[Rfam]
RNA sequence: UAGAACAAUGUAGAUAAGGGAAGUCGGCAAAAUAGAUCCGUAACUUCGGGAAAAGGAUUGGCUCUAAGGGUUGGGUACGUUGGGCCUUGGGGAGAAGUCUCUGGCGCAGAAGGGCACUAACCGCAAGGUGGGCGCCUUUUAGCGCUGGGGUGCAGGCACCCUUGGCAGGCUUCGGCCGUCCGGCGUACGCUUAACAACCAACUUAGAACUGGUACGGACAAGGGGAAUCUAACUGUCUAAUUAAAAUAUAGCAUUGCAAUGGCCAGAAAGUAGUGUUAACGCAAUGUGAUUUCUGCCCAGUGCUCUAAAUGUUAAAGCAAAGAGAUUUAACCAAGCGCGGGUAAACGGCAGGAGUAACUAUAACUCUCUUAAGGUAGCCAAAUGCCUUGUUAUCUAAUUAGUGACGCGCAUGAAUGGAUUAACGAGAUUCCCACUGUCCCUAUCUACUAUCUAGCGAAACCACAGCCAAGGGAACGGGCUUGGCCAA
Numbered sequence: 001u002a003g004a005a006c007a008a009u010g011u012a013g014a015u016a017a018g019g020g021a022a023g024u025c026g027g028c029a030a031a032a033u034a035g036a037u038c039c040g041u042a043a044c045u046u047c048g049g050g051a052a053a054a055g056g057a058u059u060g061g062c063u064c065u066a067a068g069g070g071u072u073g074g075g076u077a078c079g080u081u082g083g084g085c086c087u088u089g090g091g092g093a094g095a096a097g098u099c100u101c102u103g104g105c106g107c108a109g110a111a112g113g114g115c116a117c118u119a120a121c122c123g124c125a126a127g128g129u130g131g132g133c134g135c136c137u138u139u140u141a142g143c144g145c146u147g148g149g150g151u152g153c154a155g156g157c158a159c160c161c162u163u164g165g166c167a168g169g170c171u172u173c174g175g176c177c178g179u180c181c182g183g184c185g186u187a188c189g190c191u192u193a194a195c196a197a198c199c200a201a202c203u204u205a206g207a208a209c210u211g212g213u214a215c216g217g218a219c220a221a222g223g224g225g226a227a228u229c230u231a232a233c234u235g236u237c238u239a240a241u242u243a244a245a246a247u248a249u250a251g252c253a254u255u256g257c258a259a260u261g262g263c264c265a266g267a268a269a270g271u272a273g274u275g276u277u278a279a280c281g282c283a284a285u286g287u288g289a290u291u292u293c294u295g296c297c298c299a300g301u302g303c304u305c306u307a308a309a310u311g312u313u314a315a316a317g318c319a320a321a322g323a324g325a326u327u328u329a330a331c332c333a334a335g336c337g338c339g340g341g342u343a344a345a346c347g348g349c350a351g352g353a354g355u356a357a358c359u360a361u362a363a364c365u366c367u368c369u370u371a372a373g374g375u376a377g378c379c380a381a382a383u384g385c386c387u388u389g390u391u392a393u394c395u396a397a398u399u400a401g402u403g404a405c406g407c408g409c410a411u412g413a414a415u416g417g418a419u420u421a422a423c424g425a426g427a428u429u430c431c432c433a434c435u436g437u438c439c440c441u442a443u444c445u446a447c448u449a450u451c452u453a454g455c456g457a458a459a460c461c462a463c464a465g466c467c468a469a470g471g472g473a474a475c476g477g478g479c480u481u482g483g484c485c486a487a
Stems, first nucleotide, its partner, number of pairs: 001453004010447007018439003035059005044049001060210002063207006069199005075188009084166003089161003099152001101148007109140007117132002120129003211215001223432007230424001234248003251287007262274002265271001291418003295349003300346002302342004310337003319328003351367005369373001389405005466483005
Dot-bracket structure: ((((.....(((((((.(((..............(((((....(....).....)))))((.(((((((((((.((((((((((((..(((.......(.(((((((.(((((((.((.(((....))).)).))))))).)))))))...)......)))..))).............)))))))))......)))))..)))))).))(...).......((((((((...(((.........)))..(((((((....((.(.....).))......)))))))...(((.(((..((((((....(((......(((....)))......))).))))..))))).(((((.......))))).(...)...............(((((.......)))))..........))).....).)))))))....))).)))))))..))))............(((((........)))))....

This 487-nucleotide part of an RNA from Dothidotthia symphoricarpi belongs to the Rfam family "Eukaryotic large subunit ribosomal RNA". The match comes from Rfam's covariance-model search (3102 bits). Its family is annotated with ribosome and structural constituent of ribosome in the Gene Ontology. The literature on the family includes a 2002 paper in BMC Bioinformatics by Cannone et al., "The comparative RNA web (CRW) site: an online database of comparative sequence and structure information for ribosomal, intron, and other RNAs". NCBI's taxonomy places the organism under Eukaryota, Fungi, Dikarya, Dothidotthiaceae, Dothidotthia symphoricarpi. The family's consensus secondary structure is taken from published work.